A member of the RNA family "mir-19 microRNA precursor family" from Gambusia affinis, 83 nucleotides long. It scores 57 bits against the family's covariance model.

RNA sequence: GGUUCUGGUCAGCUUUGCAGGGUGGGCAGUCAGCCUGUGUUCAAUCAGCAGCUGUGCAAACCCAUGCAAAACUGACCAUGGCU
Numbered sequence: 001g002g003u004u005c006u007g008g009u010c011a012g013c014u015u016u017g018c019a020g021g022g023u024g025g026g027c028a029g030u031c032a033g034c035c036u037g038u039g040u041u042c043a044a045u046c047a048g049c050a051g052c053u054g055u056g057c058a059a060a061c062c063c064a065u066g067c068a069a070a071a072c073u074g075a076c077c078a079u080g081g082c083u
Base pairs, nucleotide, nucleotide: 003081004080006078007077008076009075010074011073012072014070015069016068017067018066019065020063021062023059026057027056028055032053033052034051
Rfam links the family to the GO terms miRNA-mediated post-transcriptional gene silencing and RISC complex. Taxonomically the source falls in Gambusia (Eukaryota, Opisthokonta, Actinopteri, Neopterygii). Pairs were carried over by alignment from the consensus structure, which was predicted with RNAalifold.